[Rfam]
RNA sequence: GUUUUCGGAUAACUGCGCAAUUUUGUCAUCCUCAGAAGUUGUUUUGAGGAUCCGAUGUUGUGAGGAAAGUCCAGGCUCGUGCGAUGCUGAGAUGCUCGCAGUGAUUGUGUCAGGCGAAUCAAUAAGCCUGAGUAGGAGCGUCACUCCUAACGGCGGAAAAGAGAGCUAAGGCUUGCUAUGCUCAAUUUUCUAUAAAGUGCCAAAGAGACGAUGUCGUAAGGAAACUUGCGAAGUGGAACGUGGUAAACCCCUCAAACGAGCAACCCAAACAUAUGGUAGGGGCAUUCUAGCAACCGAAUUGAAGGUGUGCUGGAGAUUGCAAAAGCAAUAGACAGAUGGUUAUCGAAGAUUAAUCUUACUUGAUUGGAUUGAUUGGAACAAAACUUGGCUUAUAGAA
Dot-bracket structure: ...(((((((((((.((((((...................................))))))....[[[.[[[[[(((((((((.((......)))))).....(((.(((((((..........))))))(((((((.....)))))).)((.((((....((((...((....))..))))....)))).....(((((............(((((((....)))))))..........)))..))))).))))))))...(((............)))...(((((((.................)))))))(((((....)))))........)))))))...(((((((((.........))))))))).........]]]]]]]].).)))
RNA: Bacterial RNase P class B
Organism: Lactococcus hircilactis